[Rfam]
RNA sequence: GGGAGGAGCCGUCAACACACGCAGUGUGAUCACAUGACGGCGACGAACUGCCGCCGAGCCGGAGGCGAGGGGGCGUCACAUGAA
Numbered sequence: 001g002g003g004a005g006g007a008g009c010c011g012u013c014a015a016c017a018c019a020c021g022c023a024g025u026g027u028g029a030u031c032a033c034a035u036g037a038c039g040g041c042g043a044c045g046a047a048c049u050g051c052c053g054c055c056g057a058g059c060c061g062g063a064g065g066c067g068a069g070g071g072g073g074c075g076u077c078a079c080a081u082g083a084a
Stems, first nucleotide, its partner, number of pairs: 008041006016028004050074003054070002058066002
A member of the RNA family "GA-cis RNA", 84 nucleotides long. Rfam's curators put it in the seed alignment. Pairs were carried over by alignment from the consensus structure, which is taken from published work.